RNA: MIR1858 microRNA precursor family
Organism: Oryza glumipatula
RNA sequence: UCCCGUCAUUGCUGCCAACGAGGGGGGGGGGUGCUGCAACAAGGAGAGGAGGACGGAGUGGGGCAAGUGGAGCAUCGAAGGGGAUGUCGUCGCCGCCGAAUCCGCUCGUGGGACAUCCCCUUCGACGCUUCACUCGCCCCACUCCGUCCUCUUCUCCUUGUUGCUGCACCCCCCCUUCGCUGGCUGCGACAACGGC
Numbered sequence: 001u002c003c004c005g006u007c008a009u010u011g012c013u014g015c016c017a018a019c020g021a022g023g024g025g026g027g028g029g030g031g032u033g034c035u036g037c038a039a040c041a042a043g044g045a046g047a048g049g050a051g052g053a054c055g056g057a058g059u060g061g062g063g064c065a066a067g068u069g070g071a072g073c074a075u076c077g078a079a080g081g082g083g084a085u086g087u088c089g090u091c092g093c094c095g096c097c098g099a100a101u102c103c104g105c106u107c108g109u110g111g112g113a114c115a116u117c118c119c120c121u122u123c124g125a126c127g128c129u130u131c132a133c134u135c136g137c138c139c140c141a142c143u144c145c146g147u148c149c150u151c152u153u154c155u156c157c158u159u160g161u162u163g164c165u166g167c168a169c170c171c172c173c174c175c176u177u178c179g180c181u182g183g184c185u186g187c188g189a190c191a192a193c194g195g196c
Stems, first nucleotide, its partner, number of pairs: 003195004009189004014184004019179001023176003027173008036164022059141006066134008075125002078122011090111004095105002